[Rfam]
RNA: HIV gag stem loop 3 (GSL3)
RNA sequence: GGUCAGGAUCAAAAAAGAAAUAUCAACUAAAACAUUUAGUAUGGGCAAGCAAGGAGCUAGAAAGAUUUGCAUGUAAUCCUGAUC
Numbered sequence: 001g002g003u004c005a006g007g008a009u010c011a012a013a014a015a016a017g018a019a020a021u022a023u024c025a026a027c028u029a030a031a032a033c034a035u036u037u038a039g040u041a042u043g044g045g046c047a048a049g050c051a052a053g054g055a056g057c058u059a060g061a062a063a064g065a066u067u068u069g070c071a072u073g074u075a076a077u078c079c080u081g082a083u084c
Stems, first nucleotide, its partner, number of pairs: 001084008